[Rfam]
Source information:
The record is a 133-nucleotide RNA from Mizuhopecten yessoensis, which matches "Vault RNA" in Rfam. Rfam's curators write: This family of RNAs are found as part of the enigmatic vault ribonucleoprotein complex. A search with the family's covariance model found it, with a score of 43 bits. The family's consensus secondary structure is taken from published work.

Nucleotides: 133
Stems, first nucleotide, its partner, number of pairs: 002128006012117004017113004025070003
Number, partner (000 for none) and nucleotide at each position: 001000g002128u003127g004126u005125u006124g007123g008000c009000u010000u011000a012117g013116u014115c015114g016000u017113g018112u019111g020110g021000u022000u023000a024000c025070u026069u027068c028000g029000u030000c031000u032000u033000g034000a035000u036000u037000g038000u039000c040000u041000a042000a043000u044000g045000a046000a047000u048000c049000u050000u051000u052000g053000u054000u055000g056000u057000g058000a059000a060000g061000a062000g063000u064000u065000g066000u067000a068027g069026a070025a071000a072000c073000c074000u075000c076000c077000c078000g079000u080000a081000g082000g083000a084000g085000u086000u087000c088000c089000u090000u091000a092000g093000g094000g095000u096000c097000c098000a099000c100000c101000u102000a103000u104000a105000u106000c107000u108000a109000a110020c111019c112018a113017c114015u115014g116013a117012c118000g119000c120000u121000g122000u123007c124006c125005a126004a127003c128002a129000u130000u131000u132000u133000a
It is annotated as a non-coding RNA gene.